This 187-nucleotide RNA sequence from Porphyromonas cangingivalis belongs to the Rfam family "Bacteroidales-1 6S-Bacteroidales RNA suggested".
Bacteroidales-1 was first reported in a comparative genomics-based approach of genome and metagenome sequences from Weinberg et al. 2010 In a high-resolution transcriptome map study of Bacteroides thetaiotaomicron, Ryan et al. 2020 report this sRNA as 6S RNA homologue of Bacteroides, in the study they obtain evidence of small product RNAs (pRNAs) related to 6S function.
NCBI's taxonomy places the organism under Bacteria, Bacteroidota, Bacteroidales, Porphyromonadaceae, Porphyromonas.
Rfam classes the family as a small RNA.
A search with the family's covariance model found it, with a score of 88 bits.

RNA sequence: GGUCGUGUCGGGCGAUCGGGAAACUCGUCAUUCUUUUACAAUUCCGAGAUCUUUGGCAAGCAUAAUGGCGGGCCGCAAUCUUUCGAGAUUAUCUCCGAAAGGGGGUACGGCGGAUUACAAAGUGUACGUCAACCUCAAAACUUGUUUUCUUGGAGUUUCGUCACAAUCUCCCGGCGCGGCUAUCAUA
Numbered sequence: 001g002g003u004c005g006u007g008u009c010g011g012g013c014g015a016u017c018g019g020g021a022a023a024c025u026c027g028u029c030a031u032u033c034u035u036u037u038a039c040a041a042u043u044c045c046g047a048g049a050u051c052u053u054u055g056g057c058a059a060g061c062a063u064a065a066u067g068g069c070g071g072g073c074c075g076c077a078a079u080c081u082u083u084c085g086a087g088a089u090u091a092u093c094u095c096c097g098a099a100a101g102g103g104g105g106u107a108c109g110g111c112g113g114a115u116u117a118c119a120a121a122g123u124g125u126a127c128g129u130c131a132a133c134c135u136c137a138a139a140a141c142u143u144g145u146u147u148u149c150u151u152g153g154a155g156u157u158u159c160g161u162c163a164c165a166a167u168c169u170c171c172c173g174g175c176g177c178g179g180c181u182a183u184c185a186u187a
Stems, first nucleotide, its partner, number of pairs: 053132005060125004066119002073113004079088003091106006